[Rfam]
RNA sequence: ACUUGUUCCGAGGGGUGCUCGUUCGCGAGCUGAGAUGGCCUGAAGGCCGAACCCUUCGAACCUGAUCCGGGUCAUGCCGGCGAAGGAACGGAACGGGUAUCUCCG
Numbered sequence: 001a002c003u004u005g006u007u008c009c010g011a012g013g014g015g016u017g018c019u020c021g022u023u024c025g026c027g028a029g030c031u032g033a034g035a036u037g038g039c040c041u042g043a044a045g046g047c048c049g050a051a052c053c054c055u056u057c058g059a060a061c062c063u064g065a066u067c068c069g070g071g072u073c074a075u076g077c078c079g080g081c082g083a084a085g086g087a088a089c090g091g092a093a094c095g096g097g098u099a100u101c102u103c104c105g
Stems, first nucleotide, its partner, number of pairs: 006093005011055004016049001017030005037048004061086003067080004
Record summary:
Shown here is a 105-nucleotide RNA from Bauldia litoralis, a member of the family "TPP riboswitch aptamer (THI element)". Rfam links the family to the GO term thiamine pyrophosphate binding. The source organism's lineage runs through Bacteria, Pseudomonadota, Alphaproteobacteria, Kaistiaceae and Bauldia.